[Rfam]
RNA sequence: GAUAGAACGUGGAAAAAAAGAGGGCCUAAGAGAAGUGAGCAUGGGAACAUGAUGGAAGGCUAAAAACAUCAGUUCCUCAUCUAACAUCUGAAGAGCUUUGUUUUGAGUUUUCAUGUUGCCACCCAUGCCUAUUGUUCUUUGGUGUUCAUUCCUCUUCCUUUUGGAU
Numbered sequence: 001g002a003u004a005g006a007a008c009g010u011g012g013a014a015a016a017a018a019a020g021a022g023g024g025c026c027u028a029a030g031a032g033a034a035g036u037g038a039g040c041a042u043g044g045g046a047a048c049a050u051g052a053u054g055g056a057a058g059g060c061u062a063a064a065a066a067c068a069u070c071a072g073u074u075c076c077u078c079a080u081c082u083a084a085c086a087u088c089u090g091a092a093g094a095g096c097u098u099u100g101u102u103u104u105g106a107g108u109u110u111u112c113a114u115g116u117u118g119c120c121a122c123c124c125a126u127g128c129c130u131a132u133u134g135u136u137c138u139u140u141g142g143u144g145u146u147c148a149u150u151c152c153u154c155u156u157c158c159u160u161u162u163g164g165a166u
Base pairs, nucleotide, nucleotide: 009157011155012154013153016150017149020147021146022145025142026141028139029138030137031136032135034133036131037130039128040127041126042125043124044123045122048118049117052114055112056111057110058109059108060107
The family of this 166-nucleotide sequence from Triticum urartu is "MIR2118 microRNA precursor family". Taxonomically the source falls in Triticum (Eukaryota, Viridiplantae, Magnoliopsida, Poales). The base pairs follow the family's consensus structure, which was predicted with RNAalifold. For this family Rfam cites "Characterization and expression profiles of miRNAs in rice seeds" (Xue et al., Nucleic Acids Res, 2009). The family has 7 seed sequences and 2,377 matches in Rfam 15.1.